[Rfam]
RNA: Bacterial RNase P class A
RNA sequence: GGAGCCGGCCGGACAGUCGCCGCCGUGCCAUGCACGGGGGAGGAAAGUCCGGGCUCCAUAGGGCAGGGUGCCAGGUAAUGCCUGGGCGGCGCGAGCCGACGGAAAGUGCAGCAGAGAGUAGACCGCCUAAGCGGGCGUCAGCCCGCCGGUAAGGGUGAAAGGGUGCGGUAAGAGCGCACCGCGCGCCUGGUAACAGUGCGUGGCAAGGUAAACCCCACCCGGAGCAAGACCAAAUAGGAACCCAAAGGCGUGGCCCGCGCUGGGUUCGGGUAGGUUGCUUGAGGGUCGCGGUGACGCGGCCCCUAGAGGAAUGGCUGUCCUCGACAGAACCCGGCUUACAGGCUGGCUCCCAUU
Numbered sequence: 001g002g003a004g005c006c007g008g009c010c011g012g013a014c015a016g017u018c019g020c021c022g023c024c025g026u027g028c029c030a031u032g033c034a035c036g037g038g039g040g041a042g043g044a045a046a047g048u049c050c051g052g053g054c055u056c057c058a059u060a061g062g063g064c065a066g067g068g069u070g071c072c073a074g075g076u077a078a079u080g081c082c083u084g085g086g087c088g089g090c091g092c093g094a095g096c097c098g099a100c101g102g103a104a105a106g107u108g109c110a111g112c113a114g115a116g117a118g119u120a121g122a123c124c125g126c127c128u129a130a131g132c133g134g135g136c137g138u139c140a141g142c143c144c145g146c147c148g149g150u151a152a153g154g155g156u157g158a159a160a161g162g163g164u165g166c167g168g169u170a171a172g173a174g175c176g177c178a179c180c181g182c183g184c185g186c187c188u189g190g191u192a193a194c195a196g197u198g199c200g201u202g203g204c205a206a207g208g209u210a211a212a213c214c215c216c217a218c219c220c221g222g223a224g225c226a227a228g229a230c231c232a233a234a235u236a237g238g239a240a241c242c243c244a245a246a247g248g249c250g251u252g253g254c255c256c257g258c259g260c261u262g263g264g265u266u267c268g269g270g271u272a273g274g275u276u277g278c279u280u281g282a283g284g285g286u287c288g289c290g291g292u293g294a295c296g297c298g299g300c301c302c303c304u305a306g307a308g309g310a311a312u313g314g315c316u317g318u319c320c321u322c323g324a325c326a327g328a329a330c331c332c333g334g335c336u337u338a339c340a341g342g343c344u345g346g347c348u349c350c351c352a353u354u
Base pairs, nucleotide, nucleotide: 001350002349003348004347005346006345007344008343009342010341011339012319013318014317015316016315017314018313020040021039023037024036025035026034027033028032045337046336047335049334050333051332052331053330054224055223056222057221061256062255063254064253066220067219068218069217070216071085072084073083074082075081086100087098088097089096090095101215102214106213107212108209109208123154124153125150126149127148131146132145133144134143135142136141162180163179164178165177166176167175181204182202183201184200185199186198187196188195189194228276229275230274231273238267239266240265241264242263243262247261248260249259250258251257283302284301285300286299287298288297289296290295